[Rfam]
RNA sequence: UUAAAAGAGGGGUUGUAGGGGCUGAAAUCCCCUGUCCACCUUCAGGAAGGUGCCCAGGCUGCAGAACAGCCGUUGAAGAAAAC
Number, nucleotide and partner (000 for none) at each position: 001u000002u000003a000004a000005a000006a000007g000008a000009g000010g000011g000012g000013u000014u000015g035016u034017a033018g032019g031020g030021g029022c000023u000024g000025a000026a000027a000028u000029c021030c020031c019032c018033u017034g016035u015036c000037c000038a000039c000040c000041u000042u000043c000044a000045g000046g000047a000048a000049g000050g000051u000052g000053c000054c000055c000056a000057g071058g070059c069060u068061g067062c000063a000064g000065a000066a000067c061068a060069g059070c058071c057072g000073u000074u000075g000076a000077a000078g000079a000080a000081a000082a000083c000
A member of the RNA family "Clostridiales-2 RNA" from Anaerovirgula multivorans, 83 nucleotides long.